[Rfam]
RNA sequence: UGCAGCCCAGUCAAAUUCGGUCCCUGCCCCCCCAUGGCGGGGACCGGCCACCGGCUGCCACAGUGACCUCCGUGCCCACAAGCCCCGUGUCCCCUCCUGUGGGGCCCGGGGGGUGAAUCCCACUGGAGACAUGG
Numbered sequence: 001u002g003c004a005g006c007c008c009a010g011u012c013a014a015a016u017u018c019g020g021u022c023c024c025u026g027c028c029c030c031c032c033c034a035u036g037g038c039g040g041g042g043a044c045c046g047g048c049c050a051c052c053g054g055c056u057g058c059c060a061c062a063g064u065g066a067c068c069u070c071c072g073u074g075c076c077c078a079c080a081a082g083c084c085c086c087g088u089g090u091c092c093c094c095u096c097c098u099g100u101g102g103g104g105c106c107c108g109g110g111g112g113g114u115g116a117a118u119c120c121c122a123c124u125g126g127a128g129a130c131a132u133g134g
Stems, first nucleotide, its partner, number of pairs: 002058004018046011071126001074123001083112003088108002
The record is a 134-nucleotide RNA from Leptocoma aspasia, which matches "Small nucleolar RNA SNORA5" in Rfam.
Rfam classes the family as an H/ACA-box small nucleolar RNA.
Taxonomically the source falls in Leptocoma (Eukaryota, Gnathostomata, Coelurosauria, Aves).
Rfam describes the family as follows. ACA5 is a member of the H/ACA class of snoRNA that guide the sites of modification of uridines to pseudouridines.